[Rfam]
RNA sequence: CCCCGCGAAACUAGUCGCAGCUAGACUUCGAUCGAGGCAGAACGUGAGGUAGAGCACCGAUUGGAUGCUUAGGGAGGGAAACCUCUCGGUGUCUUGUCAAACUCCGAACUUGCGUUCACCGUAGACAUCGGAUGCAAGGUAACCCGGGGUAAGCUUGGUUACCGUAAGGGAAAGAACCCAGCCUUAAGUUAAGGUCCCCAAAUCUCAGUCAAGUGUAACAUGAAAUGGCGUCAGUAGUCCAAUACAACCGGGAGGUGAGCUCAGAAGCAGCCACCCUUUAAAGAUAGCGUAACAGCUCACCGGUCUAGAUUAUGGGCCCAGAAAAUGGACGGGGCUAAACUGAGUACCGAUACUUAAGAAUACAGCAAUGUAAUUUGAUAGCGGGGCGUGGUGCAUGGGCAGAAGUAGGGCCGUGAGGUCCUAUGGACCGUGUACCAACGAGGAU
Numbered sequence: 001c002c003c004c005g006c007g008a009a010a011c012u013a014g015u016c017g018c019a020g021c022u023a024g025a026c027u028u029c030g031a032u033c034g035a036g037g038c039a040g041a042a043c044g045u046g047a048g049g050u051a052g053a054g055c056a057c058c059g060a061u062u063g064g065a066u067g068c069u070u071a072g073g074g075a076g077g078g079a080a081a082c083c084u085c086u087c088g089g090u091g092u093c094u095u096g097u098c099a100a101a102c103u104c105c106g107a108a109c110u111u112g113c114g115u116u117c118a119c120c121g122u123a124g125a126c127a128u129c130g131g132a133u134g135c136a137a138g139g140u141a142a143c144c145c146g147g148g149g150u151a152a153g154c155u156u157g158g159u160u161a162c163c164g165u166a167a168g169g170g171a172a173a174g175a176a177c178c179c180a181g182c183c184u185u186a187a188g189u190u191a192a193g194g195u196c197c198c199c200a201a202a203u204c205u206c207a208g209u210c211a212a213g214u215g216u217a218a219c220a221u222g223a224a225a226u227g228g229c230g231u232c233a234g235u236a237g238u239c240c241a242a243u244a245c246a247a248c249c250g251g252g253a254g255g256u257g258a259g260c261u262c263a264g265a266a267g268c269a270g271c272c273a274c275c276c277u278u279u280a281a282a283g284a285u286a287g288c289g290u291a292a293c294a295g296c297u298c299a300c301c302g303g304u305c306u307a308g309a310u311u312a313u314g315g316g317c318c319c320a321g322a323a324a325a326u327g328g329a330c331g332g333g334g335c336u337a338a339a340c341u342g343a344g345u346a347c348c349g350a351u352a353c354u355u356a357a358g359a360a361u362a363c364a365g366c367a368a369u370g371u372a373a374u375u376u377g378a379u380a381g382c383g384g385g386g387c388g389u390g391g392u393g394c395a396u397g398g399g400c401a402g403a404a405g406u407a408g409g410g411c412c413g414u415g416a417g418g419u420c421c422u423a424u425g426g427a428c429c430g431u432g433u434a435c436c437a438a439c440g441a442g443g444a445u
Stems, first nucleotide, its partner, number of pairs: 001386006011024005026134001027132006036120002040117008052105001053103002059098003063094006072087006138163007146156002168179003183358007193348003202345001204344006226320003230317003234313006247304005253277003259271002278282001283298001287296002359376002361372004387440001389437010405424008
Archaeal large subunit ribosomal RNA: a 445-nucleotide part of an RNA from Candidatus Methanomethylophilus sp. 1R26. NCBI's taxonomy places the organism under Archaea, Methanobacteriati, Thermoplasmata, Methanomethylophilaceae, Methanomethylophilus. Its family is annotated with structural constituent of ribosome and ribosome in the Gene Ontology. Pairs were carried over by alignment from the consensus structure, which is taken from published work.